The family of this 98-nucleotide RNA sequence from Papaver nudicaule is "Small nucleolar RNA R30/Z108". The family's consensus secondary structure was predicted with PFOLD. The family's RNA type in Rfam is C/D-box small nucleolar RNA. From the family's description: snoR30 is a C/D box small nucleolar RNA which acts as a methylation guide for 18S ribosomal RNA in plants. The match comes from Rfam's covariance-model search (88 bits).
[Rfam]
RNA sequence: AAAGAUAGCAAUGAGGAUAUAAAGCUCCCUCUUCUGAAUGAAAGCUGAGGACAACUGCUGGCUGAAUCGAACCUAAUAUAAUCGCCACUACUGAGUUA
Dot-bracket structure: .....((((.....................................................................................))))